[Rfam]
RNA sequence: UCCCCAACAAUAUCCUGGUGCUGAGUGAGUGACACUCAAGAGACUCCAGCAUCAGUGAUUUUGUUGAAGA
Numbered sequence: 001u002c003c004c005c006a007a008c009a010a011u012a013u014c015c016u017g018g019u020g021c022u023g024a025g026u027g028a029g030u031g032a033c034a035c036u037c038a039a040g041a042g043a044c045u046c047c048a049g050c051a052u053c054a055g056u057g058a059u060u061u062u063g064u065u066g067a068a069g070a
Stems, first nucleotide, its partner, number of pairs: 006065005012059003015055009
RNA: mir-338 microRNA precursor family